Rfam assigns this 76-nucleotide RNA sequence from Callithrix jacchus to the family "mir-320 microRNA precursor family". It scores 85 bits against the family's covariance model. For this family Rfam cites "Many novel mammalian microRNA candidates identified by extensive cloning and RAKE analysis" (Berezikov et al., Genome Res, 2006).
RNA sequence: AAAAUACUCAGCCUUCUCUUCCUAGUUCUUCCUGGAGUCGGGAAAAGCUGGGUCGAGAGGGAAAAAAAAAAUUAAA
Numbered sequence: 001a002a003a004a005u006a007c008u009c010a011g012c013c014u015u016c017u018c019u020u021c022c023u024a025g026u027u028c029u030u031c032c033u034g035g036a037g038u039c040g041g042g043a044a045a046a047g048c049u050g051g052g053u054c055g056a057g058a059g060g061g062a063a064a065a066a067a068a069a070a071a072u073u074a075a076a
Base pairs, nucleotide, nucleotide: 014059015058016057017056018055021052022051023050024049025048029044030043031042032041033040034039